[Rfam]
RNA sequence: AGGCAGCCCUCUUGCGAAUGAACAUAGCAGGUGUGGCGUUAUUCUGCUCGGACAUGGAUUCUUUUGCUCUUCAGACUUGCUGAGUUGGGUUUUAAAUUAACGCCCUUCGCUGAAGCUGGUCUAGUAAGCUUAAGUACAUU
Numbered sequence: 001a002g003g004c005a006g007c008c009c010u011c012u013u014g015c016g017a018a019u020g021a022a023c024a025u026a027g028c029a030g031g032u033g034u035g036g037c038g039u040u041a042u043u044c045u046g047c048u049c050g051g052a053c054a055u056g057g058a059u060u061c062u063u064u065u066g067c068u069c070u071u072c073a074g075a076c077u078u079g080c081u082g083a084g085u086u087g088g089g090u091u092u093u094a095a096a097u098u099a100a101c102g103c104c105c106u107u108c109g110c111u112g113a114a115g116c117u118g119g120u121c122u123a124g125u126a127a128g129c130u131u132a133a134g135u136a137c138a139u140u
Stems, first nucleotide, its partner, number of pairs: 002040003007036002009033001011031005017025001061134003066129003073122005079116003084108001

A member of the RNA family "Small nucleolar RNA snoR77" from Nelumbo nucifera, 140 nucleotides long. Taxonomically the source falls in Nelumbo (Eukaryota, Viridiplantae, Streptophyta, Magnoliopsida). The base pairs follow the family's consensus structure, which was predicted with WAR. For this family Rfam cites "Experimental RNomics: identification of 140 candidates for small non-messenger RNAs in the plant Arabidopsis thaliana" (Marker et al., Curr Biol, 2002).